[Rfam]
RNA sequence: GAGAUUGAAGUUUGCCAACUGACACUCUAUAUAUAACCUGUUGGGUAACCAACUAUGGCAAUAAACUGAUGUAUGGAAUAGACGUUGCGGACCCGGGGGCGGUACCCGGCGCCUCCACCACUCUCUCUCAAGAGUUGGAAAUGCGGGGGCGAAAUAGGAUCGACGUGCGUAAUAAAGAUAUAACUUUUGCCCAGAAUGAUACCUCUGUGAAGGGUCACAACUUGUAAAUGCAAACGAUAACGAAGCAUUUGCUGUAGCCGCCUAAUAGGUUAGCUACGCGGGGUUCGAAGGGCACCUAGCAACAGAAGCCCUUCACC
Numbered sequence: 001g002a003g004a005u006u007g008a009a010g011u012u013u014g015c016c017a018a019c020u021g022a023c024a025c026u027c028u029a030u031a032u033a034u035a036a037c038c039u040g041u042u043g044g045g046u047a048a049c050c051a052a053c054u055a056u057g058g059c060a061a062u063a064a065a066c067u068g069a070u071g072u073a074u075g076g077a078a079u080a081g082a083c084g085u086u087g088c089g090g091a092c093c094c095g096g097g098g099g100c101g102g103u104a105c106c107c108g109g110c111g112c113c114u115c116c117a118c119c120a121c122u123c124u125c126u127c128u129c130a131a132g133a134g135u136u137g138g139a140a141a142u143g144c145g146g147g148g149g150c151g152a153a154a155u156a157g158g159a160u161c162g163a164c165g166u167g168c169g170u171a172a173u174a175a176a177g178a179u180a181u182a183a184c185u186u187u188u189g190c191c192c193a194g195a196a197u198g199a200u201a202c203c204u205c206u207g208u209g210a211a212g213g214g215u216c217a218c219a220a221c222u223u224g225u226a227a228a229u230g231c232a233a234a235c236g237a238u239a240a241c242g243a244a245g246c247a248u249u250u251g252c253u254g255u256a257g258c259c260g261c262c263u264a265a266u267a268g269g270u271u272a273g274c275u276a277c278g279c280g281g282g283g284u285u286c287g288a289a290g291g292g293c294a295c296c297u298a299g300c301a302a303c304a305g306a307a308g309c310c311c312u313u314c315a316c317c
Stems, first nucleotide, its partner, number of pairs: 040053005057191005068184001070182005083169003087166003093109005110151007192207004197217003202214002281297004287314006
Notes:
The record is a 317-nucleotide RNA sequence from Paremcibacter congregatus, which matches "Alphaproteobacteria transfer-messenger RNA" in Rfam. Rfam classes the family as a non-coding RNA gene. Lineage of the source: Bacteria > Pseudomonadota > Alphaproteobacteria > Emcibacteraceae > Paremcibacter. It scores 242 bits against the family's covariance model.